[Rfam]
RNA sequence: GCUGGCACUGUGAUGAAUAUCUUUGCCGUUUACCCAACGGAUUGUUACUGUGAAGAACCUCUUGAAAAUCUGAGAGCCAGC
Numbered sequence: 001g002c003u004g005g006c007a008c009u010g011u012g013a014u015g016a017a018u019a020u021c022u023u024u025g026c027c028g029u030u031u032a033c034c035c036a037a038c039g040g041a042u043u044g045u046u047a048c049u050g051u052g053a054a055g056a057a058c059c060u061c062u063u064g065a066a067a068a069u070c071u072g073a074g075a076g077c078c079a080g081c
Stems, first nucleotide, its partner, number of pairs: 001081006
Dot-bracket structure: ((((((.....................................................................))))))
Source information: Small nucleolar RNA SNORD87: an 81-nucleotide RNA from Geotrypetes seraphini. Taxonomically the source falls in Geotrypetes (Eukaryota, Gnathostomata, Teleostomi, Euteleostomi). It scores 53 bits against the family's covariance model.